This 600-nucleotide part of an RNA from Sediminibacterium sp. Gen4 belongs to the Rfam family "Bacterial large subunit ribosomal RNA".
NCBI's taxonomy places the organism under Bacteria, Pseudomonadati, Chitinophagales, Chitinophagaceae, Sediminibacterium.
Pairs were carried over by alignment from the consensus structure, which is taken from published work.
A search with the family's covariance model found it, with a score of 2698 bits.
RNA sequence: UAGUAUCGGUGAAGAUGCCGGUUACCCGCCACGGGACGGAAAGACCCCGUGAACCUUCACUACAACUUUGCAUUGAUUUUGAGCAACAAAUGUGUAGGAUAGUUGGGAGACUUUGAAGCAGUGUCGCCAGGCAUUGUGGAGUCAUCGUUGAAAUACCAACCUUUUGUUGCUUAGAACCUAACCCUGAACAAGGGGACAUUGCAUGGUGGGUAGUUUGACUGGGGUGGUCGCCUCCUAAAAAGUAACGGAGGCUCGCAAAGGUACCCUCAGUACGGUUGGUAAUCGUACGUAGAGCGCAUUAGUAUAAGGGUGCUUGACUGUGAGGCAAACACGCCGAGCAGGAGCGAAAGCUGGCUAAAGUGAUCCGGUGGUUCUGCAUGGAAGGGCCAUCGCUCAAAGGAUAAAAGGUACUCCGGGGAUAACAGGCUGAUCUUACCCAAGAGCUCAUAUCGACGGUAAGGUUUGGCACCUCGAUGUCGGUUCGUCACAUCCUGGGGCUGGAGAAGGUCCCAAGGGUUCGGCUGUUCGCCGAUUAAAGUGGCACGUGAACUGGGUUCAGAACGUCGCAAGACAGUUCGGUCCCUAUCUGUGGUGGGCGCU
Numbered sequence: 001u002a003g004u005a006u007c008g009g010u011g012a013a014g015a016u017g018c019c020g021g022u023u024a025c026c027c028g029c030c031a032c033g034g035g036a037c038g039g040a041a042a043g044a045c046c047c048c049g050u051g052a053a054c055c056u057u058c059a060c061u062a063c064a065a066c067u068u069u070g071c072a073u074u075g076a077u078u079u080u081g082a083g084c085a086a087c088a089a090a091u092g093u094g095u096a097g098g099a100u101a102g103u104u105g106g107g108a109g110a111c112u113u114u115g116a117a118g119c120a121g122u123g124u125c126g127c128c129a130g131g132c133a134u135u136g137u138g139g140a141g142u143c144a145u146c147g148u149u150g151a152a153a154u155a156c157c158a159a160c161c162u163u164u165u166g167u168u169g170c171u172u173a174g175a176a177c178c179u180a181a182c183c184c185u186g187a188a189c190a191a192g193g194g195g196a197c198a199u200u201g202c203a204u205g206g207u208g209g210g211u212a213g214u215u216u217g218a219c220u221g222g223g224g225u226g227g228u229c230g231c232c233u234c235c236u237a238a239a240a241a242g243u244a245a246c247g248g249a250g251g252c253u254c255g256c257a258a259a260g261g262u263a264c265c266c267u268c269a270g271u272a273c274g275g276u277u278g279g280u281a282a283u284c285g286u287a288c289g290u291a292g293a294g295c296g297c298a299u300u301a302g303u304a305u306a307a308g309g310g311u312g313c314u315u316g317a318c319u320g321u322g323a324g325g326c327a328a329a330c331a332c333g334c335c336g337a338g339c340a341g342g343a344g345c346g347a348a349a350g351c352u353g354g355c356u357a358a359a360g361u362g363a364u365c366c367g368g369u370g371g372u373u374c375u376g377c378a379u380g381g382a383a384g385g386g387c388c389a390u391c392g393c394u395c396a397a398a399g400g401a402u403a404a405a406a407g408g409u410a411c412u413c414c415g416g417g418g419a420u421a422a423c424a425g426g427c428u429g430a431u432c433u434u435a436c437c438c439a440a441g442a443g444c445u446c447a448u449a450u451c452g453a454c455g456g457u458a459a460g461g462u463u464u465g466g467c468a469c470c471u472c473g474a475u476g477u478c479g480g481u482u483c484g485u486c487a488c489a490u491c492c493u494g495g496g497g498c499u500g501g502a503g504a505a506g507g508u509c510c511c512a513a514g515g516g517u518u519c520g521g522c523u524g525u526u527c528g529c530c531g532a533u534u535a536a537a538g539u540g541g542c543a544c545g546u547g548a549a550c551u552g553g554g555u556u557c558a559g560a561a562c563g564u565c566g567c568a569a570g571a572c573a574g575u576u577c578g579g580u581c582c583c584u585a586u587c588u589g590u591g592g593u594g595g596g597c598g599c600u
Base pairs, nucleotide, nucleotide: 005022006021007020008019009018025596026595027594028593029592030591031590032589034588035587036586038583039582046417047416048415049414051413052412053409054408055407056406057405059214060213061212062211066206067205069203070202071201072200075178077176078175079174080173081172082171083170084169085168086167087166088165089164090163092161102160103159104158105157106156109143110142111141118137119136120135121134122133123132124131125130182194183193184192217229218228219227220226230252231251232250233249234248235247253398255355256354261313262312263311264310265309266308267293268292270288271287272286273285274284275283294303295302318341319340320339321338324335325334326333343352344351345350366392367391368390369389370388371387372386374385375384426467427466428465430464431461432460433459434458435457436456437455441451442450478553479551480550481549482548483545484542485541486540487539488538491516492515494511495510496509497508498507499506518532519531520530521529522528559577560576561575562574563572564571565570